Rfam assigns this 82-nucleotide RNA sequence to the family "L4-Archaeoglobi ribosomal protein leades".
A reference for the family is Eckert and Weinberg (2020), "Discovery of 20 novel ribosomal leader candidates in bacteria and archaea", BMC Microbiol.
The family's RNA type in Rfam is cis-regulatory leader.

[Rfam]
RNA sequence: CUGAUCGAGACGUUGGGCCAACGCCAGUGCAGCGCGCCCGGUUCCAGAGAACAAUAUCUCUCCGGAAACGUCAAAGAGUCAG
Numbered sequence: 001c002u003g004a005u006c007g008a009g010a011c012g013u014u015g016g017g018c019c020a021a022c023g024c025c026a027g028u029g030c031a032g033c034g035c036g037c038c039c040g041g042u043u044c045c046a047g048a049g050a051a052c053a054a055u056a057u058c059u060c061u062c063c064g065g066a067a068a069c070g071u072c073a074a075a076g077a078g079u080c081a082g
Stems, first nucleotide, its partner, number of pairs: 001082005009072005014040004022034003042067004046061005